[Rfam]
RNA sequence: AACUACACUAUCGAUUAAUGGAUUCACCCGUGAGAUGAUGCGGUUGUUCCAUCUAGGAUGAUGAUGUGGCAUAUCCUAUUAAGUAAUAGGAUGCUAUGUCCUCAUCCUAUGUGAAACAGCCACGUCAUCUCGUGGAUGAAUCCAUUCAUUGAUAGUGUGGCA
Dot-bracket structure: ..(((((.(((((((.(((.((((((.(.((((.(((((..(((((((..((.((.((....(((...(((..(((((((....))))))))))...)))....)).)).))..)))))))..))))).)))).).)))))).))).))))))).)))))..
RNA: MIR807 microRNA precursor family
Organism: Oryza glumipatula